[Rfam]
RNA sequence: AGGAUUUUUAACGUGAUGAAAUAACAAUGCAACAUAGAGUCAAGCUCUGAGCUUAUAUAGCAUGGACGAGACUUGCUUUUUACAAACGUACUGAUCAAAUUUC
Numbered sequence: 001a002g003g004a005u006u007u008u009u010a011a012c013g014u015g016a017u018g019a020a021a022u023a024a025c026a027a028u029g030c031a032a033c034a035u036a037g038a039g040u041c042a043a044g045c046u047c048u049g050a051g052c053u054u055a056u057a058u059a060g061c062a063u064g065g066a067c068g069a070g071a072c073u074u075g076c077u078u079u080u081u082a083c084a085a086a087c088g089u090a091c092u093g094a095u096c097a098a099a100u101u102u103c
Stems, first nucleotide, its partner, number of pairs: 002102005
RNA: Small nucleolar RNA snR66
Organism: Kluyveromyces lactis